[Rfam]
RNA sequence: AGUUUCUUCGCGCGGGAGCUCGACCCGCGACUGCCGUGGUAGUUCAGUUCAUCGAUGACCAUCGUGACCAGCACGGGGCCGAGCCGAUCUGCCGCGUGCUCUCCGAGCACGGGGUGAAGAUCGCUCCG
Dot-bracket structure: ...........(((((.......))))).............................................(((((......((.(((...........................))).)))))))
Notes:
The record is a 128-nucleotide RNA from Klugiella xanthotipulae, which matches "ALIL pseudoknot" in Rfam. Pairs were carried over by alignment from the consensus structure, which is taken from published work.